[Rfam]
RNA sequence: CGGGACAACCGAGUUAAGGGAAAUCGGCAAGUUAGCCCCGUAAGUUCGCGAGAAGGGGUGUCUGCCUUUUACGAGGCAGAUCUCAGACAUCAGGAGGCUUCGACUGUCUAAUAAAAACAUAGGUGAUUGCUAAGCUGUAAAGCCUAGUACAAUCACUGAAUCCUGCUCAGUGCGGGUAUCUGAAAACCCUGUACAAAGGGGCGAAGGACCCGUUAACGGCGGGGGUAACUAUGACCCUCUUAAGGUAGCGUAGUACCUUGCCGCUUUAUUGGCGGCUCGCAUGAAUGGACGAACGAAAGCCUUACUGUCCCUAACUUGGUCCCGGUGAACUUUACGUUCCGGUGCGGAGUCCGGAGA
Numbered sequence: 001c002g003g004g005a006c007a008a009c010c011g012a013g014u015u016a017a018g019g020g021a022a023a024u025c026g027g028c029a030a031g032u033u034a035g036c037c038c039c040g041u042a043a044g045u046u047c048g049c050g051a052g053a054a055g056g057g058g059u060g061u062c063u064g065c066c067u068u069u070u071a072c073g074a075g076g077c078a079g080a081u082c083u084c085a086g087a088c089a090u091c092a093g094g095a096g097g098c099u100u101c102g103a104c105u106g107u108c109u110a111a112u113a114a115a116a117a118c119a120u121a122g123g124u125g126a127u128u129g130c131u132a133a134g135c136u137g138u139a140a141a142g143c144c145u146a147g148u149a150c151a152a153u154c155a156c157u158g159a160a161u162c163c164u165g166c167u168c169a170g171u172g173c174g175g176g177u178a179u180c181u182g183a184a185a186a187c188c189c190u191g192u193a194c195a196a197a198g199g200g201g202c203g204a205a206g207g208a209c210c211c212g213u214u215a216a217c218g219g220c221g222g223g224g225g226u227a228a229c230u231a232u233g234a235c236c237c238u239c240u241u242a243a244g245g246u247a248g249c250g251u252a253g254u255a256c257c258u259u260g261c262c263g264c265u266u267u268a269u270u271g272g273c274g275g276c277u278c279g280c281a282u283g284a285a286u287g288g289a290c291g292a293a294c295g296a297a298a299g300c301c302u303u304a305c306u307g308u309c310c311c312u313a314a315c316u317u318g319g320u321c322c323c324g325g326u327g328a329a330c331u332u333u334a335c336g337u338u339c340c341g342g343u344g345c346g347g348a349g350u351c352c353g354g355a356g357a
Base pairs, nucleotide, nucleotide: 001324002323003322004321009319010318011317012316013315014314015313016312018310019309020308035059036058037057038056039055044049060081061080062079063078064077065076066075067074068073082086094303095302096301097300098299099298100297101295102294105119106118107117122157123156124155125154126153127152128151129150130147134143135142136141161289162288163287165220166219167218170217171216172213173212174211175210176209179208180207181206187200188199189198190197221239222238223237224236225235226234240244260276261275262274263273264272265271338355339354340353341352342351

The record is a 357-nucleotide part of an RNA from Halorutilus salinus, which matches "Archaeal large subunit ribosomal RNA" in Rfam. Rfam 15.1 lists 2,955 matches to the family in 1,139 species. The match comes from Rfam's covariance-model search (2791 bits).